[Rfam]
RNA sequence: GCACGGCUGAAUUCUGUGUUACUCUUCUCAAUAGUAACUGCAGUCAGACACCAUGCAAGAUCAAUCCUCAUCCUCUCUACCUUCUCAGUGUCUGAGGCCAUUUUGUCCAGUCACUGAAGAGAGACUGAGUACAUAC
Numbered sequence: 001g002c003a004c005g006g007c008u009g010a011a012u013u014c015u016g017u018g019u020u021a022c023u024c025u026u027c028u029c030a031a032u033a034g035u036a037a038c039u040g041c042a043g044u045c046a047g048a049c050a051c052c053a054u055g056c057a058a059g060a061u062c063a064a065u066c067c068u069c070a071u072c073c074u075c076u077c078u079a080c081c082u083u084c085u086c087a088g089u090g091u092c093u094g095a096g097g098c099c100a101u102u103u104u105g106u107c108c109a110g111u112c113a114c115u116g117a118a119g120a121g122a123g124a125c126u127g128a129g130u131a132c133a134u135a136c
Base pairs, nucleotide, nucleotide: 001056002055003054005052006051014043015042016041017040018039067129068128069127073123074122075121076120077119078118085117086116087115088114089113090112092110093109094108096107097106
RNA: Small nucleolar RNA SNORA15
Organism: Clupea harengus